[Rfam]
RNA sequence: CCCCCCGUUGAAACGGGGGGCUAUUCCCUUUCGUCCCUGACGGGACU
Numbered sequence: 001c002c003c004c005c006c007g008u009u010g011a012a013a014c015g016g017g018g019g020g021c022u023a024u025u026c027c028c029u030u031u032c033g034u035c036c037c038u039g040a041c042g043g044g045a046c047u
Stems, first nucleotide, its partner, number of pairs: 001020008033046005

Acido-Lenti-1 RNA: a 47-nucleotide sequence from Planctomyces sp. SH-PL14. Rfam 15.1 lists 2,607 matches to the family in 171 species. By type it is a small RNA. Pairs were carried over by alignment from the consensus structure, which is taken from published work. NCBI's taxonomy places the organism under Bacteria, Pseudomonadati, Planctomycetia, Planctomycetales, Planctomyces.